[Rfam]
RNA sequence: CACUUCUCAAUGAGCUCCUUCCUGCCGACAAAGCCGUGGCAGCCUAUGGAUUCGCACGAGAAGGACAUUAACAGCUCAGUACUGGCACACUCACAACGUGGUUGCAUCAGUUGUGAUUAGCCACUACUGUUCUACAAGU
Numbered sequence: 001c002a003c004u005u006c007u008c009a010a011u012g013a014g015c016u017c018c019u020u021c022c023u024g025c026c027g028a029c030a031a032a033g034c035c036g037u038g039g040c041a042g043c044c045u046a047u048g049g050a051u052u053c054g055c056a057c058g059a060g061a062a063g064g065a066c067a068u069u070a071a072c073a074g075c076u077c078a079g080u081a082c083u084g085g086c087a088c089a090c091u092c093a094c095a096a097c098g099u100g101g102u103u104g105c106a107u108c109a110g111u112u113g114u115g116a117u118u119a120g121c122c123a124c125u126a127c128u129g130u131u132c133u134a135c136a137a138g139u
Base pairs, nucleotide, nucleotide: 003063004062005061006060007059008058014055015054016050017049018048022042023041024040025039026038074132077129078128079127094113095112096111097110099109100108